Alpha operon ribosome binding site: a 106-nucleotide sequence from Vibrio sp. qd031.
RNA sequence: AGUAGUACGCCGCAACGUAUCCUCUACGGGCUUUGUUGCGGUAAAUUCUUUUUAGAAAAACUAGGAGUGAAUAGUGGCCCGUAUAGCAGGCAUUAACAUUCCUGAU
Numbered sequence: 001a002g003u004a005g006u007a008c009g010c011c012g013c014a015a016c017g018u019a020u021c022c023u024c025u026a027c028g029g030g031c032u033u034u035g036u037u038g039c040g041g042u043a044a045a046u047u048c049u050u051u052u053u054a055g056a057a058a059a060a061c062u063a064g065g066a067g068u069g070a071a072u073a074g075u076g077g078c079c080c081g082u083a084u085a086g087c088a089g090g091c092a093u094u095a096a097c098a099u100u101c102c103u104g105a106u
Base pairs, nucleotide, nucleotide: 002049004047005046006045008040009039010038021090022089023088027081028080029079030078036104

About the family: The bacterial alpha operon ribosome binding site is surrounded by this complex pseudoknotted structure. It scores 85 bits against the family's covariance model.